[Rfam]
RNA: TPP riboswitch aptamer (THI element)
RNA sequence: UGAACAGAGCAGGGGAGCUGGAGGAGUCCGGCUGAGAAUAAAACCGAAACCGUUUUAGACCCAUAUACCUGAACCGGGUAAUGCCGGCGUAGGAAUCAUAGAGACAUGAGUG
Dot-bracket structure: ......(.(..(((..(((((......)))))......(((((.........)))))..))).....((((..((((......))))..))))...).).............
Numbered sequence: 001u002g003a004a005c006a007g008a009g010c011a012g013g014g015g016a017g018c019u020g021g022a023g024g025a026g027u028c029c030g031g032c033u034g035a036g037a038a039u040a041a042a043a044c045c046g047a048a049a050c051c052g053u054u055u056u057a058g059a060c061c062c063a064u065a066u067a068c069c070u071g072a073a074c075c076g077g078g079u080a081a082u083g084c085c086g087g088c089g090u091a092g093g094a095a096u097c098a099u100a101g102a103g104a105c106a107u108g109a110g111u112g
Stems, first nucleotide, its partner, number of pairs: 007099001009097001012062003017032005039057005068093004074087004